[Rfam]
RNA sequence: AUCGGCAUUGCGUAGAGCGCCGAAUGGAUUCGCCGCUCGCAAUUGCCGUGAUCGCUUGACACUUUUGACCACGGAUGUACUGGCAGGACGAAUAGGCGAUGAUGAGGAAGGUCGGUGCGAUUUCGCCCCGGCCUUUUUUGUU
Numbered sequence: 001a002u003c004g005g006c007a008u009u010g011c012g013u014a015g016a017g018c019g020c021c022g023a024a025u026g027g028a029u030u031c032g033c034c035g036c037u038c039g040c041a042a043u044u045g046c047c048g049u050g051a052u053c054g055c056u057u058g059a060c061a062c063u064u065u066u067g068a069c070c071a072c073g074g075a076u077g078u079a080c081u082g083g084c085a086g087g088a089c090g091a092a093u094a095g096g097c098g099a100u101g102a103u104g105a106g107g108a109a110g111g112u113c114g115g116u117g118c119g120a121u122u123u124c125g126c127c128c129c130g131g132c133c134u135u136u137u138u139u140g141u142u
Stems, first nucleotide, its partner, number of pairs: 003048004007043003015038005051100007062087002066085002069083003102141014117126003
Dot-bracket structure: ..(((((((.....(((((..............)))))..))).))))..(((((((....((..((.(((.........)))))))......))))))).((((((((((((((.(((....))).)))))))))))))).

Alphaproteobacterial sRNA ar35: a 142-nucleotide sequence from Rhizobium tibeticum. A reference for the family is del Val et al. (2012), "A survey of sRNA families in alpha-proteobacteria", RNA Biol. It scores 118 bits against the family's covariance model.